This 77-nucleotide sequence from Aedes aegypti belongs to the Rfam family "mir-9/mir-79 microRNA precursor family".
Rfam 15.1 lists 5,647 matches to the family in 934 species.
The sequence is in the family's curated seed alignment.

[Rfam]
RNA sequence: CAAAGUUCUCUUUGGUUAUCUAGCUGUAUGAGUGAAUUUAGAACAUCAUAAAGCUAGCAUACCGAAGUUAAUAGUUG
Dot-bracket structure: (((..((..(((((((...((((((.(((((..............))))).))))))...)))))))..))...)))